[Rfam]
RNA sequence: CUCGGCGAGUACCGCGAGGUCUCUGCCCGAGGCGGACCCUGACGCACUUCCCCAGCGCCAGGUGCCAUUCGGACAGGGACCCCGCGGUAUUCGCACCACGGA
Numbered sequence: 001c002u003c004g005g006c007g008a009g010u011a012c013c014g015c016g017a018g019g020u021c022u023c024u025g026c027c028c029g030a031g032g033c034g035g036a037c038c039c040u041g042a043c044g045c046a047c048u049u050c051c052c053c054a055g056c057g058c059c060a061g062g063u064g065c066c067a068u069u070c071g072g073a074c075a076g077g078g079a080c081c082c083c084g085c086g087g088u089a090u091u092c093g094c095a096c097c098a099c100g101g102a
Stems, first nucleotide, its partner, number of pairs: 010089007018081002021078005027072004032068001034066002038062004043057003
RNA: mraW RNA